Rfam assigns this 151-nucleotide RNA sequence from Handroanthus impetiginosus to the family "Small nucleolar RNA snoR138". A search with the family's covariance model found it, with a score of 55 bits. Pairs were carried over by alignment from the consensus structure, which was predicted with mfold. The organism belongs to Handroanthus, within Eukaryota. The literature on the family includes a 2009 paper in Nucleic Acids Res by Chen and Wu, "Mining small RNA sequencing data: a new approach to identify small nucleolar RNAs in Arabidopsis". Rfam 15.1 lists 308 matches to the family in 168 species. It is annotated as an H/ACA-box small nucleolar RNA.
RNA sequence: UUAGCCCCUUGAAUAACCAAAUGGGCAGUGCUCGCAAUGCGCAUACUUGCCAUUUGGUUCAGACUGGGGCGCAUAACAAAGUGAAUCUGUUUGAGGGUAAGGGACGCUUCCUUUUAGUUCCUGUUCCUUUCCUAGUUUGCUUCAUACAUAU
Numbered sequence: 001u002u003a004g005c006c007c008c009u010u011g012a013a014u015a016a017c018c019a020a021a022u023g024g025g026c027a028g029u030g031c032u033c034g035c036a037a038u039g040c041g042c043a044u045a046c047u048u049g050c051c052a053u054u055u056g057g058u059u060c061a062g063a064c065u066g067g068g069g070c071g072c073a074u075a076a077c078a079a080a081g082u083g084a085a086u087c088u089g090u091u092u093g094a095g096g097g098u099a100a101g102g103g104a105c106g107c108u109u110c111c112u113u114u115u116a117g118u119u120c121c122u123g124u125u126c127c128u129u130u131c132c133u134a135g136u137u138u139g140c141u142u143c144a145u146a147c148a149u150a151u
Stems, first nucleotide, its partner, number of pairs: 004070004009066001015059008024050001082144004087139001089118002093113003097110001099109003126135001